[Rfam]
RNA sequence: GCCCCGGUCGGAAACCGGGGCGUCACAGGAG
Numbered sequence: 001g002c003c004c005c006g007g008u009c010g011g012a013a014a015c016c017g018g019g020g021c022g023u024c025a026c027a028g029g030a031g
Base pairs, nucleotide, nucleotide: 001021002020003019004018005017006016007015008014

This 31-nucleotide RNA from Brachybacterium alimentarium belongs to the Rfam family "L31-Coriobacteria ribosomal protein leader". The family's consensus secondary structure is taken from published work. A reference for the family is Eckert and Weinberg (2020), "Discovery of 20 novel ribosomal leader candidates in bacteria and archaea", BMC Microbiol.